[Rfam]
Overview:
The record is a 99-nucleotide RNA from Bacillus sp. J14TS2, which matches "Bacillaceae-1 RNA" in Rfam.
RNA sequence: GGUCUAGGAAGAAAGGAUAAAGUUGCGCCCGUCCUGGCGCAACGUCCGCACUAGUACAGUCUGUGCGUUGCAACGCCUUUCUGACCAACAUCCUGUUGG
Numbered sequence: 001g002g003u004c005u006a007g008g009a010a011g012a013a014a015g016g017a018u019a020a021a022g023u024u025g026c027g028c029c030c031g032u033c034c035u036g037g038c039g040c041a042a043c044g045u046c047c048g049c050a051c052u053a054g055u056a057c058a059g060u061c062u063g064u065g066c067g068u069u070g071c072a073a074c075g076c077c078u079u080u081c082u083g084a085c086c087a088a089c090a091u092c093c094u095g096u097u098g099g
Stems, first nucleotide, its partner, number of pairs: 011081006025071002085099005